[Rfam]
RNA sequence: AGGAGGAACAACCCCAGCGGCGACAGCAGCUCUGGAGCCCUGGAGUCAGCCCCCGCAGUAACUCUGGAGCUCUCUUUCUCAGGGCCUGGAGGCUCCGGGCGGGG
Numbered sequence: 001a002g003g004a005g006g007a008a009c010a011a012c013c014c015c016a017g018c019g020g021c022g023a024c025a026g027c028a029g030c031u032c033u034g035g036a037g038c039c040c041u042g043g044a045g046u047c048a049g050c051c052c053c054c055g056c057a058g059u060a061a062c063u064c065u066g067g068a069g070c071u072c073u074c075u076u077u078c079u080c081a082g083g084g085c086c087u088g089g090a091g092g093c094u095c096c097g098g099g100c101g102g103g104g
Base pairs, nucleotide, nucleotide: 002096003095004094005093009088010087012084013083014082019077020076022074023073028071029070030069031068032067033066034065035064036063040058041057042056
Overview:
A member of the RNA family "mir-8834 microRNA precursor family" from Canis lupus, 104 nucleotides long. The family's consensus secondary structure was predicted with RNAalifold. A search with the family's covariance model found it, with a score of 52 bits. Its family is annotated with miRNA-mediated post-transcriptional gene silencing and RISC complex in the Gene Ontology. Lineage of the source: Eukaryota > Mammalia > Theria > Boreoeutheria > Canis lupus.